[Rfam]
The family of this 49-nucleotide RNA from Enterococcus canis is "Na+ riboswitch aptamer (DUF1646)". NCBI's taxonomy places the organism under Bacteria, Bacillati, Bacilli, Lactobacillales, Enterococcus.
RNA sequence: GGUUGGGCGUAAGCUUCAAGGAUCGAGCUUUUCAAGGGGUGAGAAAAGC
Numbered sequence: 001g002g003u004u005g006g007g008c009g010u011a012a013g014c015u016u017c018a019a020g021g022a023u024c025g026a027g028c029u030u031u032u033c034a035a036g037g038g039g040u041g042a043g044a045a046a047a048g049c
Stems, first nucleotide, its partner, number of pairs: 003019003006015003027049007